mir-92 microRNA precursor family: a 74-nucleotide RNA from Ornithorhynchus anatinus. Rfam 15.1 lists 1,347 matches to the family in 653 species. Lineage of the source: Eukaryota > Vertebrata > Teleostomi > Dipnotetrapodomorpha > Ornithorhynchus. About the family: This family represents the microRNA precursor mir-92. Human miR-92 has two predicted hairpin precursor sequences: mir-92-1 on chromosome 13 and mir-92-2 on chromosome X. miR-92 has also been cloned from mouse embryonic stem cells.
[Rfam]
RNA sequence: CGUUCUACGCAGGUUGGGAUCAGUUGCAAUUCUUUGUCUAAGUUAUUGCACUCAUCCCGGCCUGUUGAGGCUGC
Numbered sequence: 001c002g003u004u005c006u007a008c009g010c011a012g013g014u015u016g017g018g019a020u021c022a023g024u025u026g027c028a029a030u031u032c033u034u035u036g037u038c039u040a041a042g043u044u045a046u047u048g049c050a051c052u053c054a055u056c057c058c059g060g061c062c063u064g065u066u067g068a069g070g071c072u073g074c
Base pairs, nucleotide, nucleotide: 004070005069006068009065010064011063012062013061014060016058017057018056019055020054022052023051024050026049027048028047029046030045033042034041